[Rfam]
RNA: Small nucleolar RNA SNORA14
Organism: Leptobrachium leishanense
RNA sequence: GUGCAUCUCUCAAUCCUCUCGGGUUCCUGGCUGUGGAUCUCCAGACAAGAAGAGAUGCCAGAGCAAACCUGUGAAAUUUCCAAUGAGCAGAGCCCACCCUCGGCCCUUCUCUAUUUCACCUUUCACACAAAGCU
Numbered sequence: 001g002u003g004c005a006u007c008u009c010u011c012a013a014u015c016c017u018c019u020c021g022g023g024u025u026c027c028u029g030g031c032u033g034u035g036g037a038u039c040u041c042c043a044g045a046c047a048a049g050a051a052g053a054g055a056u057g058c059c060a061g062a063g064c065a066a067a068c069c070u071g072u073g074a075a076a077u078u079u080c081c082a083a084u085g086a087g088c089a090g091a092g093c094c095c096a097c098c099c100u101c102g103g104c105c106c107u108u109c110u111c112u113a114u115u116u117c118a119c120c121u122u123u124c125a126c127a128c129a130a131a132g133c134u
Stems, first nucleotide, its partner, number of pairs: 003058004008051001010049001017045003021041002025037002062134003070127005085111003089107002092104002096100001